[Rfam]
RNA sequence: AGUUUAUACAGAAGAGGCGAGAGACGGACUUUUUGACCCUCUGGCAACCAACUUUAAGUUCUUCCGAAUAGUUCGGGUGGAUUGGAAAACCGGUGCCAACUUCCGAGUUUGAUGCAUGUUGCAGUCAGACGAAUAUAAAAA
Numbered sequence: 001a002g003u004u005u006a007u008a009c010a011g012a013a014g015a016g017g018c019g020a021g022a023g024a025c026g027g028a029c030u031u032u033u034u035g036a037c038c039c040u041c042u043g044g045c046a047a048c049c050a051a052c053u054u055u056a057a058g059u060u061c062u063u064c065c066g067a068a069u070a071g072u073u074c075g076g077g078u079g080g081a082u083u084g085g086a087a088a089a090c091c092g093g094u095g096c097c098a099a100c101u102u103c104c105g106a107g108u109u110u111g112a113u114g115c116a117u118g119u120u121g122c123a124g125u126c127a128g129a130c131g132a133a134u135a136u137a138a139a140a141a
Base pairs, nucleotide, nucleotide: 003139004138005137006136007135008134013042014041015040016039017038021031022030023029027104028102043097044096045095046094048093049092101133107130108129109128110127111126112125
SAM riboswitch aptamer (S box leader): a 141-nucleotide RNA sequence from Fluviicola taffensis. NCBI's taxonomy places the organism under Bacteria, Pseudomonadati, Bacteroidota, Fluviicola, Fluviicola taffensis. From the family's description: The SAM riboswitch is found upstream of a number of genes which code for proteins involved in methionine or cysteine biosynthesis in Gram-positive bacteria. It scores 46 bits against the family's covariance model. The base pairs follow the family's consensus structure, which is taken from published work.